[Rfam]
RNA: c-di-AMP riboswitch aptamer (ydaO/yuaA leader)
Organism: Paenibacillus antarcticus
RNA sequence: AUAUUUGUUGAGCCAAAACUUUCAGUGAGAAAGUGCGGGGGACGUAAUAGGCGUGUAUAAGAACAAUAAUUACCGCUUCUUCUCACCUUGGGGUGAAUCGCAUAGAACGAUAGUGCGUAGGGUUGACUCCCAAUCCGAAUCCGACAGCUAACUUCGCAGGCGUUAAUAUAAGGAGGA
Numbered sequence: 001a002u003a004u005u006u007g008u009u010g011a012g013c014c015a016a017a018a019c020u021u022u023c024a025g026u027g028a029g030a031a032a033g034u035g036c037g038g039g040g041g042a043c044g045u046a047a048u049a050g051g052c053g054u055g056u057a058u059a060a061g062a063a064c065a066a067u068a069a070u071u072a073c074c075g076c077u078u079c080u081u082c083u084c085a086c087c088u089u090g091g092g093g094u095g096a097a098u099c100g101c102a103u104a105g106a107a108c109g110a111u112a113g114u115g116c117g118u119a120g121g122g123u124u125g126a127c128u129c130c131c132a133a134u135c136c137g138a139a140u141c142c143g144a145c146a147g148c149u150a151a152c153u154u155c156g157c158a159g160g161c162g163u164u165a166a167u168a169u170a171a172g173g174a175g176g177a
Base pairs, nucleotide, nucleotide: 012161013160014159018034019033020032021031022030023029035157036156037155038154039153040152045090046089091142092141093140099117100116101115102114120136121135122134123133